THF (Tetrahydrofolate) riboswitch aptamer: a 108-nucleotide sequence from Jeotgalibaca porci.
Gene Ontology term of the family: tetrahydrofolate metabolic process.
Tetrahydrofolate (THF) riboswitch was first reported for Ames et al. as an RNA motif in 5' untranslated (5'-UTR)regions of folate transport and biosynthesis genes in Firmicutes genomes.

RNA sequence: ACCAGAGUAGGGAACAAAGCGUUAAGUGUCGGGAGGAUGGGAUGUUGCCCCCGGACGAAAAGGAAGCUCUAUGGACUUGCUUGCGGUUUUGUUCUCGCAUUCGCUGCA
Numbered sequence: 001a002c003c004a005g006a007g008u009a010g011g012g013a014a015c016a017a018a019g020c021g022u023u024a025a026g027u028g029u030c031g032g033g034a035g036g037a038u039g040g041g042a043u044g045u046u047g048c049c050c051c052c053g054g055a056c057g058a059a060a061a062g063g064a065a066g067c068u069c070u071a072u073g074g075a076c077u078u079g080c081u082u083g084c085g086g087u088u089u090u091g092u093u094c095u096c097g098c099a100u101u102c103g104c105u106g107c108a
Base pairs, nucleotide, nucleotide: 003106004105005104010096011095012094013093014092015091016090017089018088019087020085021084022083026056027055029054030053031052032051033050035049036048040102041101042100043099044098060082061081062080